[Rfam]
RNA sequence: UGGCGCCUAACGGGCUGGAUACGGAGGAUCCAGUGAGGGAAGAAGAUGUCCCCAAGGAAUGCGUUCCACAACAAUUCUUCACUCUGGACACGCCGCGGGAACCUGCCUCGGCUACAACCAGAAGUAAGUACUGACGUCUGAUUAUGGGACAAGAAUUAAGCAGGCACGAAAUUUAUGUUUGGCAAUUGCAGGAUGCCUUACGGAUGCAAGGAGUAAAGGUUAAAAUAGAGGAUCUAUUGAGAUUCUUUGAAUUUAUUAAGGAAACCUGUCUUU
Numbered sequence: 001u002g003g004c005g006c007c008u009a010a011c012g013g014g015c016u017g018g019a020u021a022c023g024g025a026g027g028a029u030c031c032a033g034u035g036a037g038g039g040a041a042g043a044a045g046a047u048g049u050c051c052c053c054a055a056g057g058a059a060u061g062c063g064u065u066c067c068a069c070a071a072c073a074a075u076u077c078u079u080c081a082c083u084c085u086g087g088a089c090a091c092g093c094c095g096c097g098g099g100a101a102c103c104u105g106c107c108u109c110g111g112c113u114a115c116a117a118c119c120a121g122a123a124g125u126a127a128g129u130a131c132u133g134a135c136g137u138c139u140g141a142u143u144a145u146g147g148g149a150c151a152a153g154a155a156u157u158a159a160g161c162a163g164g165c166a167c168g169a170a171a172u173u174u175a176u177g178u179u180u181g182g183c184a185a186u187u188g189c190a191g192g193a194u195g196c197c198u199u200a201c202g203g204a205u206g207c208a209a210g211g212a213g214u215a216a217a218g219g220u221u222a223a224a225a226u227a228g229a230g231g232a233u234c235u236a237u238u239g240a241g242a243u244u245c246u247u248u249g250a251a252u253u254u255a256u257u258a259a260g261g262a263a264a265c266c267u268g269u270c271u272u273u
Stems, first nucleotide, its partner, number of pairs: 006027003012022001032049001034043001081125003084121002094110002097107002132151002137148004157200003160196003207249008217235005258273005
RNA: Mason-Pfizer monkey virus packaging signal